[Rfam]
RNA sequence: AGACAGAGGAAGAGGAGACAGGGAUGAGGCAGUGCAUGAGAUGGGGCAAUCAACAGAUUCCUUCCUUUCCUGAGCUGCUGCUUGGUUCAUACAAUAUCCUCUUGUGAAUUUUUUGGGAGGAAGAGAGAGUUGUGUUGUGAGUUGCGAGAGAUGAUGAGCUGACGUUGCUGCUCCCUCCCCUGCACUGCCUCUUCCCUGGCUCCCCUGCAUCACCUCAUGU
Numbered sequence: 001a002g003a004c005a006g007a008g009g010a011a012g013a014g015g016a017g018a019c020a021g022g023g024a025u026g027a028g029g030c031a032g033u034g035c036a037u038g039a040g041a042u043g044g045g046g047c048a049a050u051c052a053a054c055a056g057a058u059u060c061c062u063u064c065c066u067u068u069c070c071u072g073a074g075c076u077g078c079u080g081c082u083u084g085g086u087u088c089a090u091a092c093a094a095u096a097u098c099c100u101c102u103u104g105u106g107a108a109u110u111u112u113u114u115g116g117g118a119g120g121a122a123g124a125g126a127g128a129g130u131u132g133u134g135u136u137g138u139g140a141g142u143u144g145c146g147a148g149a150g151a152u153g154a155u156g157a158g159c160u161g162a163c164g165u166u167g168c169u170g171c172u173c174c175c176u177c178c179c180c181u182g183c184a185c186u187g188c189c190u191c192u193u194c195c196c197u198g199g200c201u202c203c204c205c206u207g208c209a210u211c212a213c214c215u216c217a218u219g220u
Base pairs, nucleotide, nucleotide: 015202016201017200019198020197021196022195023194024193027190028189029188030187031186032185034183035182036181038179040178044174045173
Annotation
The family of this 220-nucleotide sequence from Zizania palustris is "MIR408 microRNA precursor family". NCBI's taxonomy places the organism under Eukaryota, Streptophyta, Liliopsida, Oryzeae, Zizania. A search with the family's covariance model found it, with a score of 70 bits.